[Rfam]
RNA sequence: AAUAGUGGUUUCUAGGGUUCCGAUUUAAAGGAUUAACCUUUAAAUGUCUGGUCCGAGAGAAACAAGUUGACCUAGUUUUCUAGGCAACUACACGGCGGGAAAAAAGCCCGGGAGGU
Numbered sequence: 001a002a003u004a005g006u007g008g009u010u011u012c013u014a015g016g017g018u019u020c021c022g023a024u025u026u027a028a029a030g031g032a033u034u035a036a037c038c039u040u041u042a043a044a045u046g047u048c049u050g051g052u053c054c055g056a057g058a059g060a061a062a063c064a065a066g067u068u069g070a071c072c073u074a075g076u077u078u079u080c081u082a083g084g085c086a087a088c089u090a091c092a093c094g095g096c097g098g099g100a101a102a103a104a105a106g107c108c109c110g111g112g113a114g115g116u
Base pairs, nucleotide, nucleotide: 008063009062010061011060012059015054016053020051021050022048023045024044025043026042027041028040029039030038031037065089066088067087068086069085071083091111093114097109098108099107
This 116-nucleotide sequence from Lusitaniella coriacea belongs to the Rfam family "Guanidine-I riboswitch aptamer". A search with the family's covariance model found it, with a score of 83 bits. The organism belongs to Lusitaniella coriacea, within Bacteria. Rfam links the family to the GO term regulation of gene expression.